[Rfam]
RNA: mir-214 microRNA precursor family
RNA sequence: AAAUAAACGUUGCAGUGAGUCUGCCUAUCUACACUUGCUGUGCAGAAUAUCCUCCAGCCUGUACAGCAGGCACAGACAGGCAGAUAUCAGUCUGACAAUAC
Numbered sequence: 001a002a003a004u005a006a007a008c009g010u011u012g013c014a015g016u017g018a019g020u021c022u023g024c025c026u027a028u029c030u031a032c033a034c035u036u037g038c039u040g041u042g043c044a045g046a047a048u049a050u051c052c053u054c055c056a057g058c059c060u061g062u063a064c065a066g067c068a069g070g071c072a073c074a075g076a077c078a079g080g081c082a083g084a085u086a087u088c089a090g091u092c093u094g095a096c097a098a099u100a101c
Stems, first nucleotide, its partner, number of pairs: 017087001019085001022082005028076003034070001036068006043061003